[Rfam]
RNA sequence: GCGCCUGCUCCGGGGUGUGCUGAUGCGCUGAGAUGCAAGAGACCUGAAGAAAUUCAGGCGAGCUUGCGAACCCGACGAACUUGAUCCGGUUCAUACCGGCGGAAGAAGAGCUGACCUUCUUGUC
Numbered sequence: 001g002c003g004c005c006u007g008c009u010c011c012g013g014g015g016u017g018u019g020c021u022g023a024u025g026c027g028c029u030g031a032g033a034u035g036c037a038a039g040a041g042a043c044c045u046g047a048a049g050a051a052a053u054u055c056a057g058g059c060g061a062g063c064u065u066g067c068g069a070a071c072c073c074g075a076c077g078a079a080c081u082u083g084a085u086c087c088g089g090u091u092c093a094u095a096c097c098g099g100c101g102g103a104a105g106a107a108g109a110g111c112u113g114a115c116c117u118u119c120u121u122g123u124c
Base pairs, nucleotide, nucleotide: 007111008110009109010108011074012073013072014071016068017028018027019026020025035067036066037065038064039063080105081104082103086099087098088097089096